[Rfam]
RNA sequence: AUCCAUGACUCCAUGGGGGUUGCCGCCUGUGGCUGUCUCCCUUCCUAGGCAUGGAAGAGCAAUUCCUUACUAAUUGGCAAAACUUCUACCCGCUUGUGGGUUUUAGUCGUUGACUGUAGCAAGGAACAACC
Numbered sequence: 001a002u003c004c005a006u007g008a009c010u011c012c013a014u015g016g017g018g019g020u021u022g023c024c025g026c027c028u029g030u031g032g033c034u035g036u037c038u039c040c041c042u043u044c045c046u047a048g049g050c051a052u053g054g055a056a057g058a059g060c061a062a063u064u065c066c067u068u069a070c071u072a073a074u075u076g077g078c079a080a081a082a083c084u085u086c087u088a089c090c091c092g093c094u095u096g097u098g099g100g101u102u103u104u105a106g107u108c109g110u111u112g113a114c115u116g117u118a119g120c121a122a123g124g125a126a127c128a129a130c131c
Stems, first nucleotide, its partner, number of pairs: 002055006015041004020035001022033003068128001071125001074122003077117002080115001083106002088101004
The record is a 131-nucleotide RNA from Probosciger aterrimus, which matches "Small nucleolar RNA SNORA24" in Rfam. Rfam 15.1 lists 852 matches to the family in 501 species. The family's consensus secondary structure was predicted with RNAfold. From the family's description: ACA24 is a member of the H/ACA class of snoRNA that guide the sites of modification of uridines to pseudouridines. It is annotated as an H/ACA-box small nucleolar RNA.